[Rfam]
RNA sequence: CUCUGGAGAAGCAAUAUUGUACCGAAGGAGCACCCUGUAAUGAAAUGCAGGUAAUCUCUCAGGUUUAAAGACAGAG
Numbered sequence: 001c002u003c004u005g006g007a008g009a010a011g012c013a014a015u016a017u018u019g020u021a022c023c024g025a026a027g028g029a030g031c032a033c034c035c036u037g038u039a040a041u042g043a044a045a046u047g048c049a050g051g052u053a054a055u056c057u058c059u060c061a062g063g064u065u066u067a068a069a070g071a072c073a074g075a076g
Stems, first nucleotide, its partner, number of pairs: 001076005012019002021064003024060002028058003034051006
Rfam assigns this 76-nucleotide sequence from Halonatronomonas betaini to the family "Glycine riboswitch aptamer". The match comes from Rfam's covariance-model search (40 bits). Lineage of the source: Bacteria > Bacillota > Halanaerobiales > Halarsenatibacteraceae > Halonatronomonas.